[Rfam]
Nucleotides: 324
Base pairs, nucleotide, nucleotide: 001107002106003105006100007099008098009097010096011095014091018089019088025085026084027083028082029081030080031079032078033077035073036072037069038068039067042066044064047060115168116167119163121137122136124134126133127132139159140158145156146155147154198266200264209255211253212252220246229241287324288323289322293318294317295316296315297313298312299311300310301309
Number, partner (000 for none) and nucleotide at each position: 001107g002106g003105a004000c005000g006100u007099g008098a009097g010096g011095g012000c013000a014091g015000u016000c017000u018089g019088g020000c021000u022000g023000c024000a025085a026084c027083a028082u029081c030080u031079g032078u033077c034000a035073c036072c037069u038068u039067a040000u041000u042066g043000a044064u045000g046000a047060c048000c049000a050000g051000g052000u053000u054000g055000a056000u057000g058000g059000a060047g061000c062000u063000g064044a065000c066042c067039u068038g069037g070000g071000u072036g073035g074000c075000u076000g077033g078032g079031u080030g081029g082028g083027u084026g085025u086000c087000c088019c089018c090000u091014u092000c093000c094000u095011c096010c097009c098008u099007c100006a101000a102000u103000g104000c105003u106002c107001c108000a109000u110000g111000u112000g113000u114000g115168u116167c117000c118000c119163u120000a121137c122136c123000a124134a125000g126133g127132c128000u129000g130000c131000a132127g133126c134124u135000g136122g137121g138000u139159u140158g141000a142000a143000g144000a145156g146155g147154g148000u149000g150000a151000u152000c153000u154147c155146c156145c157000c158140c159139a160000c161000g162000g163119a164000a165000a166000u167116g168115a169000u170000g171000c172000u173000g174000u175000u176000u177000a178000u179000c180000g181000g182000u183000c184000a185000a186000g187000g188000g189000u190000a191000u192000a193000c194000a195000g196000u197000a198266g199000c200264c201000c202000u203000g204000c205000u206000c207000c208000c209255c210000u211253g212252c213000u214000a215000g216000a217000a218000c219000c220246u221000c222000c223000a224000a225000a226000c227000a228000a229241g230000c231000u232000c233000a234000a235000g236000g237000u238000u239000u240000a241229c242000g243000g244000c245000u246220a247000u248000u249000u250000a251000u252212g253211c254000u255209g256000u257000a258000a259000c260000a261000g262000c263000a264200g265000u266198u267000c268000c269000u270000c271000u272000a273000a274000u275000g276000a277000c278000u279000u280000c281000a282000c283000a284000g285000g286000a287324a288323c289322c290000u291000a292000c293318c294317a295316g296315a297313g298312a299311u300310g301309u302000a303000a304000a305000g306000a307000a308000a309301a310300u311299a312298u313297u314000u315296u316295c317294u318293g319000a320000g321000a322289g323288g324287u